Rfam assigns this 136-nucleotide sequence from Myotis brandtii to the family "Small nucleolar RNA SNORA42/SNORA80 family".
The literature on the family includes a 2006 paper in RNA by Schattner et al., "A computational screen for mammalian pseudouridylation guide H/ACA RNAs".
Its family is annotated with RNA processing and nucleolus in the Gene Ontology.
RNA sequence: GCAUGGUCAUGAUUUAUGGGGGGCCCUUGUCUGUGGGCCUCUCAUAGUGGACCCAUGCCAGAGGAAGUUGCAGCCUCAAACCAUUGCCCAGCCUCCUUACCCUUGGGCUGUGUGCACUGAAGGGGGCUGUACAGUA
Numbered sequence: 001g002c003a004u005g006g007u008c009a010u011g012a013u014u015u016a017u018g019g020g021g022g023g024c025c026c027u028u029g030u031c032u033g034u035g036g037g038c039c040u041c042u043c044a045u046a047g048u049g050g051a052c053c054c055a056u057g058c059c060a061g062a063g064g065a066a067g068u069u070g071c072a073g074c075c076u077c078a079a080a081c082c083a084u085u086g087c088c089c090a091g092c093c094u095c096c097u098u099a100c101c102c103u104u105g106g107g108c109u110g111u112g113u114g115c116a117c118u119g120a121a122g123g124g125g126g127c128u129g130u131a132c133a134g135u136a
Base pairs, nucleotide, nucleotide: 001058002057003056004055005053006052007051008050014047015046016045017044018043019042021040022039023038024036025035071129072128073127074126075125076124082119083118087114089110090109091108092107093106094105
The organism belongs to Myotis, within Eukaryota. Pairs were carried over by alignment from the consensus structure, which was predicted with RNAalifold. The family's RNA type in Rfam is H/ACA-box small nucleolar RNA.